[Rfam]
RNA sequence: GAGCUGUGAUGAUAUUGGCUUUAGCGAUGGAUGGGUCCUUCGCAUUCUUCUGAUCAAUUUCAGAAGUGAUUGCCAUGUGACUGAGCUC
Numbered sequence: 001g002a003g004c005u006g007u008g009a010u011g012a013u014a015u016u017g018g019c020u021u022u023a024g025c026g027a028u029g030g031a032u033g034g035g036u037c038c039u040u041c042g043c044a045u046u047c048u049u050c051u052g053a054u055c056a057a058u059u060u061c062a063g064a065a066g067u068g069a070u071u072g073c074c075a076u077g078u079g080a081c082u083g084a085g086c087u088c
Base pairs, nucleotide, nucleotide: 001088002087003086004085